[Rfam]
Nucleotides: 087
Base pairs, nucleotide, nucleotide: 012037013036017032018031019030020029021028022027040081041080042079043078045077046076047075048072049071050070055066056065057064058063
Number, partner (000 for none) and nucleotide at each position: 001000u002000a003000a004000u005000a006000g007000a008000a009000a010000a011000g012037g013036c014000a015000a016000a017032c018031u019030u020029a021028u022027c023000g024000a025000a026000a027022g028021g029020u030019a031018a032017g033000g034000a035000c036013g037012c038000a039000a040081a041080a042079c043078u044000a045077c046076g047075a048072g049071u050070c051000u052000a053000a054000c055066a056065u057064c058063c059000u060000c061000u062000u063058g064057g065056g066055u067000u068000a069000a070050g071049a072048u073000a074000g075047u076046c077045g078043g079042g080041u081040u082000g083000c084000c085000a086000a087000g